[Rfam]
RNA sequence: CUGUUUGCUGUUGGAGCAUCAUCAAGAUUCACAAUUUUAGGGUUCUUUUUUGAUUGAGCCUUUUUAUGAUUGAGAAUCCUGAUGAUGCUGCAGUGGCAAUAAG
Numbered sequence: 001c002u003g004u005u006u007g008c009u010g011u012u013g014g015a016g017c018a019u020c021a022u023c024a025a026g027a028u029u030c031a032c033a034a035u036u037u038u039a040g041g042g043u044u045c046u047u048u049u050u051u052g053a054u055u056g057a058g059c060c061u062u063u064u065u066a067u068g069a070u071u072g073a074g075a076a077u078c079c080u081g082a083u084g085a086u087g088c089u090g091c092a093g094u095g096g097c098a099a100u101a102a103g
Stems, first nucleotide, its partner, number of pairs: 010094004015089010026078005032072002
The family of this 103-nucleotide RNA from Gossypium raimondii is "mir-172 microRNA precursor family". The match comes from Rfam's covariance-model search (80 bits). Rfam links the family to the GO terms miRNA-mediated post-transcriptional gene silencing and RISC complex.